[Rfam]
RNA sequence: AACUACCCGCUAUGCGGGAGGUUCCGAAAAGCUUACAGCUUUGCAUAUGUUAUAAAAACUCCUUUUGAUUUGUUAGUAAAGCUUGCGGUCUGGCAACUGCAAGCGGCAACAAAUCAAAAG
Number, nucleotide and partner (000 for none) at each position: 001a023002a022003c021004u020005a000006c018007c017008c016009g015010c014011u000012a000013u000014g010015c009016g008017g007018g006019a000020g004021g003022u002023u001024c000025c000026g000027a000028a042029a041030a040031g039032c038033u037034u000035a000036c000037a033038g032039c031040u030041u029042u028043g000044c000045a000046u000047a000048u000049g000050u000051u000052a000053u000054a000055a000056a000057a000058a000059c000060u000061c000062c120063u119064u118065u117066u116067g115068a114069u113070u112071u108072g107073u106074u105075a000076g000077u000078a000079a000080a000081g104082c103083u102084u101085g100086c099087g098088g097089u096090c000091u000092g000093g000094c000095a000096a089097c088098u087099g086100c085101a084102a083103g082104c081105g074106g073107c072108a071109a000110c000111a000112a070113a069114u068115c067116a066117a065118a064119a063120g062

Shown here is a 120-nucleotide RNA from Bilophila wadsworthia, a member of the family "STnc490 Hfq binding RNA". A search with the family's covariance model found it, with a score of 108 bits. The organism belongs to Bilophila wadsworthia, within Bacteria.